This 117-nucleotide RNA sequence from Erwinia mallotivora belongs to the Rfam family "Ribosomal S15 leader".
The base pairs follow the family's consensus structure, which is taken from published work.
A search with the family's covariance model found it, with a score of 103 bits.
The E. coli Ribosomal S15 gene 5' UTR can form two alternative structures. One that is a series of three hairpins, The other includes a pseudoknot. This structure causes translational regulation of the S15 protein. The alignment of this family contains only the final two hairpins which are conserved in other species, and also includes the complete region that forms the alternate structures.
On this family, see Benard et al., Biochimie 1996: "Pseudoknot and translational control in the expression of the S15 ribosomal protein".
RNA sequence: CUGGGUUGCUGAAUUAGAGAUCGGCACCUGUACAUUUAUCUUAAAAUUUGGAGUUGAAUAAUGUCUCUAAGUGUUAAAACUAAGGCACAAAUCAUUGCGGAUUUUGGCCGUGACGCA
Numbered sequence: 001c002u003g004g005g006u007u008g009c010u011g012a013a014u015u016a017g018a019g020a021u022c023g024g025c026a027c028c029u030g031u032a033c034a035u036u037u038a039u040c041u042u043a044a045a046a047u048u049u050g051g052a053g054u055u056g057a058a059u060a061a062u063g064u065c066u067c068u069a070a071g072u073g074u075u076a077a078a079a080c081u082a083a084g085g086c087a088c089a090a091a092u093c094a095u096u097g098c099g100g101a102u103u104u105u106g107g108c109c110g111u112g113a114c115g116c117a
Stems, first nucleotide, its partner, number of pairs: 007026006047071007